[Rfam]
This 134-nucleotide RNA from Hucho hucho belongs to the Rfam family "Small nucleolar RNA SNORA13". The family's RNA type in Rfam is H/ACA-box small nucleolar RNA. Gene Ontology terms of the family: RNA processing and nucleolus. ACA13 is a member of the H/ACA class of snoRNA that guide the sites of modification of uridines to pseudouridines. Taxonomically the source falls in Hucho (Eukaryota, Chordata, Neopterygii, Euteleosteomorpha). The family's consensus secondary structure was predicted with CMfinder.
RNA sequence: UGCCUUUAUGUGUUGCCCGUUCAUUGUCUCCAGAGUGAAUGAGGUGUCAACCGAGGCAUGCAGAAACCUUGUAGUUUUUUUGGGGAAGGAGUGCUCACUGAUUGCUUUCAUUAACACACACUGCAAGAACACAC
Dot-bracket structure: .(((((....((.((((((((((((........)))))))).)))).))...)))))..........((((((((.....((.(.((..((..............))...))..).)).)))))))).......